The family of this 132-nucleotide sequence from Chinchilla lanigera is "Small nucleolar RNA SNORA13". It scores 128 bits against the family's covariance model. Gene Ontology terms of the family: RNA processing and nucleolus. ACA13 is a member of the H/ACA class of snoRNA that guide the sites of modification of uridines to pseudouridines.
[Rfam]
RNA sequence: AGCCUUUGUGUUGCCCGUUCACUUUGGAAACUAGUGAACGUGGUGUCAAGAAAGGCAUAAAGCAAUGCUCUGCAGCUUUUUCCUGCCCUUAUAUGUGGUGUAUUUGGUGUAGGAGCUGCAGAAGUGACAGCU
Dot-bracket structure: .((((((.((.((((((((((((.........)))))))).)))).))..))))))..........(((.((((((....((((((((.................)).))))))))))))..))).......
Numbered sequence: 001a002g003c004c005u006u007u008g009u010g011u012u013g014c015c016c017g018u019u020c021a022c023u024u025u026g027g028a029a030a031c032u033a034g035u036g037a038a039c040g041u042g043g044u045g046u047c048a049a050g051a052a053a054g055g056c057a058u059a060a061a062g063c064a065a066u067g068c069u070c071u072g073c074a075g076c077u078u079u080u081u082c083c084u085g086c087c088c089u090u091a092u093a094u095g096u097g098g099u100g101u102a103u104u105u106g107g108u109g110u111a112g113g114a115g116c117u118g119c120a121g122a123a124g125u126g127a128c129a130g131c132u
Stems, first nucleotide, its partner, number of pairs: 002056006009048002012045004016040008067125003071120006081114006087107002